[Rfam]
RNA sequence: AUAGAUAAAGGCAAACCUACUGAAAAGUUGGGGCGCAAAGCGAGUGGUCUACGGGAGCCUCCUAUGACAGCACAGCUGCCUUAG
Numbered sequence: 001a002u003a004g005a006u007a008a009a010g011g012c013a014a015a016c017c018u019a020c021u022g023a024a025a026a027g028u029u030g031g032g033g034c035g036c037a038a039a040g041c042g043a044g045u046g047g048u049c050u051a052c053g054g055g056a057g058c059c060u061c062c063u064a065u066g067a068c069a070g071c072a073c074a075g076c077u078g079c080c081u082u083a084g
Stems, first nucleotide, its partner, number of pairs: 003081002011036002016031002019028003034070001039077003044073003047068003
Dot-bracket structure: ..((......((...((.(((....))).))..[))..(((..((((((................))).]))).)))..))...
RNA: c-di-GMP-I-GGC riboswitch aptamer
Organism: Halalkalibacillus sediminis